RNA sequence: CUGGAGGCCUAAGAAAGUGGAGUCAUUGAAGUCAUACUGACUCUUCUGAUACUAGCCUCCUAAAUGAAAAGGUCGUUGGAACAGGCCCUGUCUUCAAGAUGAAUUCAGGUCCUACUUCAUCAACCAACAGUG
Numbered sequence: 001c002u003g004g005a006g007g008c009c010u011a012a013g014a015a016a017g018u019g020g021a022g023u024c025a026u027u028g029a030a031g032u033c034a035u036a037c038u039g040a041c042u043c044u045u046c047u048g049a050u051a052c053u054a055g056c057c058u059c060c061u062a063a064a065u066g067a068a069a070a071g072g073u074c075g076u077u078g079g080a081a082c083a084g085g086c087c088c089u090g091u092c093u094u095c096a097a098g099a100u101g102a103a104u105u106c107a108g109g110u111c112c113u114a115c116u117u118c119a120u121c122a123a124c125c126a127a128c129a130g131u132g
Base pairs, nucleotide, nucleotide: 003060004059005058006057007056008055010051011050019044020043021042022041023040024039027034028033071125072124073123075121077119078118083113084112085111087109088108089107090106
The family of this 132-nucleotide RNA from Monodelphis domestica is "Small Cajal body specific RNA 15". From the family's description: scaRNAs are a specific class of small nuclear RNAs which localise to the Cajal bodies and guide the modification of RNA polymerase II transcribed spliceosomal RNAs U1, U2, U4, U5 and U12. Taxonomically the source falls in Monodelphis (Eukaryota, Deuterostomia, Amniota, Metatheria).